Nucleotides: 587
Base pairs, nucleotide, nucleotide: 001583002582003581004580005579006578007577008576010575011574012573014570015569022404023403024402025401027400028399029396030395031394032393033392035201036200037199038198042193043192045190046189047188048187051154052153053152054151055150056149057148058147059146060145061144062143064141065140066139068137078136079135080134081133082132085119086118087117094113095112096111097110098109099108100107101106158181159180160179162178163177164176165175166174167173204216205215206214207213217239218238219237220236221235222234240385242342243341248300249299250298251297252296253295254280255279257275258274259273260272261271262270281290282289305328306327307326308325311322312321313320330339331338332337353379354378355377356376357375358374359373361372362371413454414453415452417451418448419447420446421445422444423443424442428438429437465540466538467537468536469535470532471529472528473527474526475525478503479502481498482497483496484495485494486493505519506518507517508516509515546564547563548562549561550559551558552557
Number, partner (000 for none) and nucleotide at each position: 001583c002582c003581c004580g005579c006578g007577g008576c009000u010575a011574g012573a013000c014570g015569g016000a017000a018000a019000g020000a021000c022404c023403c024402c025401a026000u027400g028399a029396a030395c031394c032393u033392u034000u035201a036200c037199u038198g039000u040000a041000g042193c043192u044000u045190u046189g047188c048187a049000u050000u051154g052153g053152a054151c055150u056149u057148u058147g059146a060145c061144g062143g063000g064141a065140c066139u067000u068137g069000u070000g071000u072000a073000g074000g075000a076000u077000a078136g079135g080134u081133g082132g083000g084000a085119g086118g087117c088000u089000g090000u091000g092000a093000a094113g095112c096111g097110g098109u099108g100107a101106c102000g103000c104000c105000a106101g107100u108099c109098a110097u111096c112095g113094u114000g115000g116000a117087g118086c119085c120000a121000a122000c123000c124000u125000u126000g127000a128000a129000a130000u131000a132082c133081c134080a135079c136078c137068c138000u139066g140065g141064u142000g143062u144061c145060g146059u147058u148057g149056a150055g151054g152053u153052u154051c155000u156000a157000a158181c159180c160179u161000g162178c163177g164176c165175c166174c167173g168000u169000g170000a171000u172000c173167c174166g175165g176164g177163c178162g179160g180159g181158g182000g183000a184000c185000a186000g187048u188047g189046c190045a191000u192043g193042g194000u195000a196000g197000g198038c199037a200036g201035u202000u203000u204216g205215a206214c207213u208000g209000g210000g211000g212000c213207g214206g215205u216204c217239u218238c219237c220236u221235c222234c223000c224000a225000a226000a227000g228000u229000g230000u231000a232000a233000c234222g235221g236220a237219g238218g239217a240385g241000u242342a243341c244000g245000a246000a247000g248300g249299u250298u251297c252296u253295c254280u255279a256000g257275a258274c259273a260272c261271g262270g263000u264000c265000g266000g267000a268000a269000a270262u271261c272260g273259u274258g275257u276000u277000g278000a279255u280254a281290g282289u283000g284000c285000a286000a287000g288000g289282g290281c291000a292000u293000a294000a295253g296252a297251g298250a299249g300248c301000u302000u303000a304000a305328c306327u307326g308325c309000g310000a311322g312321a313320c314000c315000g316000a317000c318000a319000a320313g321312u322311c323000g324000a325308g326307c327306a328305g329000g330339u331338g332337c333000g334000a335000a336000a337332g338331c339330a340000g341243g342242u343000c344000c345000u346000a347000g348000u349000g350000a351000u352000c353379c354378g355377g356376u357375g358374g359373u360000u361372c362371u363000g364000u365000a366000u367000g368000g369000a370000a371362g372361g373359g374358c375357c376356a377355u378354c379353g380000c381000u382000c383000a384000a385240c386000g387000g388000a389000u390000a391000a392033a393032a394031g395030g396029u397000a398000c399028u400027c401025u402024g403023g404022g405000g406000a407000u408000a409000a410000c411000a412000g413454g414453c415452u416000g417451a418448u419447u420446c421445c422444g423443c424442c425000c426000a427000a428438g429437a430000g431000u432000u433000c434000a435000c436000a437429u438428c439000g440000a441000c442424g443423g444422c445421g446420g447419a448418g449000u450000u451417u452415g453414g454413c455000a456000c457000c458000u459000c460000g461000a462000u463000g464000u465540c466538g467537g468536c469535u470532c471529a472528u473527c474526u475525c476000a477000u478503c479502c480000u481498g482497g483496g484495g485494c486493u487000g488000u489000a490000g491000c492000c493486g494485g495484u496483c497482c498481c499000a500000a501000g502479g503478g504000u505519a506518u507517g508516g509515c510000u511000g512000u513000u514000c515509g516508c517507c518506a519505u520000u521000u522000a523000a524000a525475g526474a527473g528472g529471u530000a531000c532470g533000u534000g535469a536468g537467c538466u539000g540465g541000g542000u543000u544000u545000a546564a547563a548562a549561c550559g551558u552557c553000g554000u555000g556000a557552g558551a559550c560000a561549g562548u563547u564546u565000g566000g567000u568000c569015c570014c571000u572000a573012u574011c575010u576008g577007c578006c579005g580004u581003g582002g583001g584000c585000g586000c587000u
Shown here is a 587-nucleotide part of an RNA from Sulfuritortus calidifontis, a member of the family "Bacterial large subunit ribosomal RNA". The source organism's lineage runs through Bacteria, Pseudomonadati, Pseudomonadota, Nitrosomonadales and Sulfuritortus. Pairs were carried over by alignment from the consensus structure, which is taken from published work.